[Rfam]
Description
This 361-nucleotide RNA sequence from Halobacteroides halobius belongs to the Rfam family "transfer-messenger RNA". About the family: Bacterial tmRNA, also known as 10Sa RNA or SsrA, is named for its dual tRNA and mRNA-like properties. Its role is to liberate the mRNA from a stalled ribosome. To accomplish this part of the tmRNA is used as a reading frame that ends in a translation stop signal. The broken mRNA is replaced in the ribosome by the tmRNA and translation of the tmRNA leads to addition of a proteolysis tag to the incomplete protein enabling recognition by a protease. The literature on the family includes a 1996 paper in RNA by Williams and Bartel, "Phylogenetic analysis of tmRNA secondary structure". Taxonomically the source falls in Halobacteroides halobius (Bacteria, Bacillati, Bacillota, Halanaerobiales). By type it is a non-coding RNA gene.
RNA sequence: GGGGGUGUACAUGGAAAUCGACCUAUAGAGUAUGAGGGAGCAAGCGAGCCGAGAUUACUAUUAAACUCGUAAGAUUAAUAGUAUUUAAAUUUAUUUGCAAACGAUAAUAAUUACGCUUUAGCGGCUGCGUAACGCACCCGCUACGCUUAUAGGGGUCUUGUCUGUGGGCGCCUAUAAGUGUCAUAAUUAAGCAGGCUAUCUAUUUUCUGAAGCUUGUAGGAAGAUAGUGAACUUAUCAAGCUAGCAAUUUUAAACCCUGCUUAUGGGGGGUAAAGUUGCGAAACUAAAUCAUAAGCUACGCUCGUAGAAACUCCUAGGGUACUCUAUGGGGACGGGAGUUCGAAUCUCCCCACCUCCACCA
Numbered sequence: 001g002g003g004g005g006u007g008u009a010c011a012u013g014g015a016a017a018u019c020g021a022c023c024u025a026u027a028g029a030g031u032a033u034g035a036g037g038g039a040g041c042a043a044g045c046g047a048g049c050c051g052a053g054a055u056u057a058c059u060a061u062u063a064a065a066c067u068c069g070u071a072a073g074a075u076u077a078a079u080a081g082u083a084u085u086u087a088a089a090u091u092u093a094u095u096u097g098c099a100a101a102c103g104a105u106a107a108u109a110a111u112u113a114c115g116c117u118u119u120a121g122c123g124g125c126u127g128c129g130u131a132a133c134g135c136a137c138c139c140g141c142u143a144c145g146c147u148u149a150u151a152g153g154g155g156u157c158u159u160g161u162c163u164g165u166g167g168g169c170g171c172c173u174a175u176a177a178g179u180g181u182c183a184u185a186a187u188u189a190a191g192c193a194g195g196c197u198a199u200c201u202a203u204u205u206u207c208u209g210a211a212g213c214u215u216g217u218a219g220g221a222a223g224a225u226a227g228u229g230a231a232c233u234u235a236u237c238a239a240g241c242u243a244g245c246a247a248u249u250u251u252a253a254a255c256c257c258u259g260c261u262u263a264u265g266g267g268g269g270g271u272a273a274a275g276u277u278g279c280g281a282a283a284c285u286a287a288a289u290c291a292u293a294a295g296c297u298a299c300g301c302u303c304g305u306a307g308a309a310a311c312u313c314c315u316a317g318g319g320u321a322c323u324c325u326a327u328g329g330g331g332a333c334g335g336g337a338g339u340u341c342g343a344a345u346c347u348c349c350c351c352a353c354c355u356c357c358a359c360c361a
Stems, first nucleotide, its partner, number of pairs: 001357007022330010033318001036315005045304005050069004056083007120142005126136003144180010155169004160196006200227008211242006244279009255268003259296004265289001334350005